[Rfam]
RNA sequence: CUUACUUCUCAGGGCGGGGUGUAAUUCCCCACCGGCGGUAAACCAGACAGUGCAGGGUGCUAAAACAUCGUGCUUUCGUCUGGAAGCCCGCGAGCGCUCGCCGUAACGUUAUCAAUAAUUUAUUAUCGAUUUACGUGGUGAGGUCAGCAGAUCCGGUGAAAUUCCGGGGCCGACGGUUAUAGUCCGGAUGGGAGAGAGUAACG
Numbered sequence: 001c002u003u004a005c006u007u008c009u010c011a012g013g014g015c016g017g018g019g020u021g022u023a024a025u026u027c028c029c030c031a032c033c034g035g036c037g038g039u040a041a042a043c044c045a046g047a048c049a050g051u052g053c054a055g056g057g058u059g060c061u062a063a064a065a066c067a068u069c070g071u072g073c074u075u076u077c078g079u080c081u082g083g084a085a086g087c088c089c090g091c092g093a094g095c096g097c098u099c100g101c102c103g104u105a106a107c108g109u110u111a112u113c114a115a116u117a118a119u120u121u122a123u124u125a126u127c128g129a130u131u132u133a134c135g136u137g138g139u140g141a142g143g144u145c146a147g148c149a150g151a152u153c154c155g156g157u158g159a160a161a162u163u164c165c166g167g168g169g170c171c172g173a174c175g176g177u178u179a180u181a182g183u184c185c186g187g188a189u190g191g192g193a194g195a196g197a198g199u200a201a202c203g
Stems, first nucleotide, its partner, number of pairs: 003201001006198005017029003031183002033172002035091004094148002152168005174186003
RNA: FMN riboswitch aptamer (RFN element)